[Rfam]
Annotation: Small nucleolar RNA SNORD103/SNORD85: an 85-nucleotide sequence from Coregonus sp. 'balchen'. NCBI's taxonomy places the organism under Eukaryota, Gnathostomata, Teleostei, Salmoniformes, Coregonus. It is annotated as a C/D-box small nucleolar RNA.
Nucleotides: 085
Base pairs, nucleotide, nucleotide: 001085002084003083004082005081006080
Number, partner (000 for none) and nucleotide at each position: 001085g002084u003083u004082g005081g006080c007000u008000g009000u010000g011000a012000u013000g014000a015000c016000a017000c018000a019000c020000u021000u022000a023000g024000c025000c026000u027000c028000a029000c030000u031000u032000a033000g034000g035000a036000g037000u038000g039000c040000u041000u042000u043000g044000a045000u046000a047000a048000u049000g050000a051000g052000a053000a054000c055000a056000c057000c058000u059000u060000c061000a062000u063000a064000c065000u066000c067000a068000a069000a070000u071000a072000a073000c074000u075000u076000c077000u078000g079000a080006g081005c082004c083003a084002a085001u